[Rfam]
c-di-AMP riboswitch aptamer (ydaO/yuaA leader): a 165-nucleotide sequence from Paenibacillus mucilaginosus. The organism belongs to Paenibacillus mucilaginosus, within Bacteria.

RNA sequence: AUUCAUAUUUCGCUGAAUUUCCGUUCAAGGAAAACGGGGGAACCAUUGGGACGAAGCCGCUUCGUCAUGGGGUGAAUCAGCACAGCCUGCAACAGGCGCCGCUGUAGGGCGACUCUAACGCCCGAAUCCGUCAGCUAACCUCGUAAGCGUAUUUAGAGAAGGUGA
Dot-bracket structure: ..........((((...(((((......)))))((((((....((......................))(((.....((((...................))))..((((.........))))...))).........)))))).))))................